[Rfam]
The record is a 398-nucleotide sequence from Rhizodiscina lignyota, which matches "Nuclear RNase P" in Rfam. Rfam classes the family as a ribozyme. Ribonuclease P (RNase P) is a ubiquitous endoribonuclease, found in archaea, bacteria and eukarya as well as chloroplasts and mitochondria. A reference for the family is Frank et al. (2000), "Phylogenetic-comparative analysis of the eukaryal ribonuclease P RNA", RNA.
RNA sequence: UCCCCACCAAUGCUGCGUUUCUUUGCUCACAAACAGAACAACUGGUUUGGUCUGCUUCCAGCCUUAUUGUUCCAACAUGCAAAUGAGAAAUUCGGAGUAAUCUUCACUUCUACCGCUAUCUUCCGACCUCUCAACGAUGUUGGCUAGCUCUGGCAUCUGCCUGCGAGGGCCUAGCGUGACACACGCCUGCAUUCGGCAUCAGAAAACUCAGGGACUCUGUCUGCUCAGCAUGCCGCAAGGCUGCUAGCUGUUUAGAGCACCCCUAUGGGAGCCGGUGCGAAGAUUGUAUGCGUGUCUGCUUGGCAGCCCGUGAUACUUCAGUGCAAUACGCAGCAUACUGAGCUCAAGCCGAAAGGUGAGGGUUGGGUAUCAUUCGAUUCCGAUUACUCUGGUGGGUA
Numbered sequence: 001u002c003c004c005c006a007c008c009a010a011u012g013c014u015g016c017g018u019u020u021c022u023u024u025g026c027u028c029a030c031a032a033a034c035a036g037a038a039c040a041a042c043u044g045g046u047u048u049g050g051u052c053u054g055c056u057u058c059c060a061g062c063c064u065u066a067u068u069g070u071u072c073c074a075a076c077a078u079g080c081a082a083a084u085g086a087g088a089a090a091u092u093c094g095g096a097g098u099a100a101u102c103u104u105c106a107c108u109u110c111u112a113c114c115g116c117u118a119u120c121u122u123c124c125g126a127c128c129u130c131u132c133a134a135c136g137a138u139g140u141u142g143g144c145u146a147g148c149u150c151u152g153g154c155a156u157c158u159g160c161c162u163g164c165g166a167g168g169g170c171c172u173a174g175c176g177u178g179a180c181a182c183a184c185g186c187c188u189g190c191a192u193u194c195g196g197c198a199u200c201a202g203a204a205a206a207c208u209c210a211g212g213g214a215c216u217c218u219g220u221c222u223g224c225u226c227a228g229c230a231u232g233c234c235g236c237a238a239g240g241c242u243g244c245u246a247g248c249u250g251u252u253u254a255g256a257g258c259a260c261c262c263c264u265a266u267g268g269g270a271g272c273c274g275g276u277g278c279g280a281a282g283a284u285u286g287u288a289u290g291c292g293u294g295u296c297u298g299c300u301u302g303g304c305a306g307c308c309c310g311u312g313a314u315a316c317u318u319c320a321g322u323g324c325a326a327u328a329c330g331c332a333g334c335a336u337a338c339u340g341a342g343c344u345c346a347a348g349c350c351g352a353a354a355g356g357u358g359a360g361g362g363u364u365g366g367g368u369a370u371c372a373u374u375c376g377a378u379u380c381c382g383a384u385u386a387c388u389c390u391g392g393u394g395g396g397u398a
Base pairs, nucleotide, nucleotide: 001398003396004395007392008391009390012334013333014332015331016330017329018328022083023082024081025080036072037071038070039069040068041067093382094381095380096379097378102282103281104280105279159170160169161168162167174186175185176184177183189278190277191276194274195273196272197271211264212263213262335370336369337368338367339366341364342363343362344361345360